This 80-nucleotide RNA from Ursus americanus belongs to the Rfam family "Small nucleolar RNA U105B". NCBI's taxonomy places the organism under Eukaryota, Sarcopterygii, Caniformia, Ursidae, Ursus. The family's RNA type in Rfam is C/D-box small nucleolar RNA. Clan: SNORD105 clan. Rfam links the family to the GO terms RNA processing and nucleolus. It scores 101 bits against the family's covariance model.

RNA sequence: UCCGGUGCGGCUGAUGACAGCACUCCGGCUGAGGCUCUGUGAUUGCUCAGUCUCAAAGUAAACGCUCUGACGCACUGUGC
Numbered sequence: 001u002c003c004g005g006u007g008c009g010g011c012u013g014a015u016g017a018c019a020g021c022a023c024u025c026c027g028g029c030u031g032a033g034g035c036u037c038u039g040u041g042a043u044u045g046c047u048c049a050g051u052c053u054c055a056a057a058g059u060a061a062a063c064g065c066u067c068u069g070a071c072g073c074a075c076u077g078u079g080c
Base pairs, nucleotide, nucleotide: 005075006074007073008072009071010021011020012019013018029050030049031048032047033046